[Rfam]
RNA: c-di-GMP-I-GGC riboswitch aptamer
Organism: Natranaerobius thermophilus
RNA sequence: CUUGACAAGGGCAAACCUAUCGUGAGGUAGGGGCGCAAAGCUACGAGUCUUUACAGUUUGUAAAGACAGUCGGGCCGCCAAGG
Numbered sequence: 001c002u003u004g005a006c007a008a009g010g011g012c013a014a015a016c017c018u019a020u021c022g023u024g025a026g027g028u029a030g031g032g033g034c035g036c037a038a039a040g041c042u043a044c045g046a047g048u049c050u051u052u053a054c055a056g057u058u059u060g061u062a063a064a065g066a067c068a069g070u071c072g073g074g075c076c077g078c079c080a081a082g083g
Stems, first nucleotide, its partner, number of pairs: 001083001003080002011036002016031006034069001040075003044072003047067006